This 76-nucleotide RNA sequence from Anaerofilum sp. An201 belongs to the Rfam family "Fluoride riboswitch aptamer (crcB RNA motif)". Pairs were carried over by alignment from the consensus structure, which is taken from published work. Its family is annotated with response to fluoride and positive regulation of gene expression in the Gene Ontology. The match comes from Rfam's covariance-model search (39 bits).

Nucleotides: 076
Base pairs, nucleotide, nucleotide: 010026011025012024013023016067017066018065019064020063046057047056048055
Number, partner (000 for none) and nucleotide at each position: 001000a002000u003000c004000a005000a006000a007000c008000a009000g010026g011025g012024g013023a014000a015000u016067g017066a018065a019064g020063u021000g022000c023013u024012c025011c026010c027000c028000g029000c030000g031000g032000c033000g034000u035000u036000g037000g038000c039000c040000c041000a042000a043000a044000c045000c046057g047056c048055c049000c050000u051000c052000a053000u054000c055048g056047g057046c058000u059000g060000a061000u062000g063020a064019c065018u066017u067016c068000u069000g070000u071000a072000c073000g074000c075000g076000a